[Rfam]
RNA sequence: GGGUAGAAAUUUAUUCUUCGGUGCAUGCAGAGUUUAGUCGCCUAACCAUUGCGGGCUAAGGAUACGUAAAAGGUCCUGGUUUGUACCUGGGGAAGUGACUGGGUGAGUGUGCAUCGUGAGCCAAGAUGGGGUCGGACAGCCACAAAGGCUCUGUACAACCGGUUUCCUUCGGGAGGCAGUGUGCGGAUGUCGGUGGAGGUUCGGCCUGAGGAAGCUUCGGCGAUCUUGGCAAAAUGGUUUUUACCCACCCGUCUUGAAACACGG
Numbered sequence: 001g002g003g004u005a006g007a008a009a010u011u012u013a014u015u016c017u018u019c020g021g022u023g024c025a026u027g028c029a030g031a032g033u034u035u036a037g038u039c040g041c042c043u044a045a046c047c048a049u050u051g052c053g054g055g056c057u058a059a060g061g062a063u064a065c066g067u068a069a070a071a072g073g074u075c076c077u078g079g080u081u082u083g084u085a086c087c088u089g090g091g092g093a094a095g096u097g098a099c100u101g102g103g104u105g106a107g108u109g110u111g112c113a114u115c116g117u118g119a120g121c122c123a124a125g126a127u128g129g130g131g132u133c134g135g136a137c138a139g140c141c142a143c144a145a146a147g148g149c150u151c152u153g154u155a156c157a158a159c160c161g162g163u164u165u166c167c168u169u170c171g172g173g174a175g176g177c178a179g180u181g182u183g184c185g186g187a188u189g190u191c192g193g194u195g196g197a198g199g200u201u202c203g204g205c206c207u208g209a210g211g212a213a214g215c216u217u218c219g220g221c222g223a224u225c226u227u228g229g230c231a232a233a234a235u236g237g238u239u240u241u242u243a244c245c246c247a248c249c250c251g252u253c254u255u256g257a258a259a260c261a262c263g264g
Base pairs, nucleotide, nucleotide: 001246002245003244004243005242006241007240008239009238010237011236019116020115021114022113023112024111025110026109027108028107121229122228123227124226125225126224127223249264250263251262252261
RNA: Eukaryotic large subunit ribosomal RNA, nucleotides 419 to 682
Organism: Sterkiella histriomuscorum